Nucleotides: 123
Stems, first nucleotide, its partner, number of pairs: 007039003011036001013034005044077005051070003089118010
Number, partner (000 for none) and nucleotide at each position: 001000c002000a003000u004000a005000u006000u007039c008038g009037c010000c011036c012000c013034g014033g015032a016031c017030g018000a019000a020000c021000c022000u023000c024000c025000u026000c027000c028000c029000u030017c031016g032015u033014c034013c035000c036011g037009g038008c039007g040000a041000u042000c043000u044077g045076g046075c047074g048073g049000a050000a051070a052069g053068c054000g055000a056000a057000c058000c059000u060000c061000c062000u063000c064000c065000c066000u067000c068053g069052c070051u071000g072000a073048c074047c075046g076045c077044c078000c079000c080000u081000u082000a083000a084000g085000a086000g087000a088000a089118a090117c091116g092115c093114c094113c095112g096111u097110c098109g099000a100000c101000c102000u103000c104000c105000u106000c107000c108000c109098c110097g111096a112095c113094g114093g115092g116091c117090g118089u119000u120000u121000u122000u123000c